RNA sequence: GUUGAAAAACCCAGAUACGUAAGGUAACUUGGUGAUUCGACUAGAGCGUCGAAUUUUAAUUUUUGCGAAGCUUCUUCGGGGUGUCCGUCGAAGCGCU
Number, nucleotide and partner (000 for none) at each position: 001g000002u000003u000004g000005a000006a000007a037008a036009a033010c032011c000012c000013a029014g028015a000016u026017a025018c024019g000020u000021a000022a000023g000024g018025u017026a016027a000028c014029u013030u000031g000032g010033u009034g000035a000036u008037u007038c051039g050040a049041c048042u046043a000044g000045a000046g042047c000048g041049u040050c039051g038052a000053a000054u000055u000056u000057u000058a000059a000060u000061u000062u000063u000064u000065g000066c000067g000068a000069a000070g000071c000072u095073u000074c093075u092076u091077c090078g089079g088080g086081g085082u000083g000084u000085c081086c080087g000088u079089c078090g077091a076092a075093g074094c000095g072096c000097u000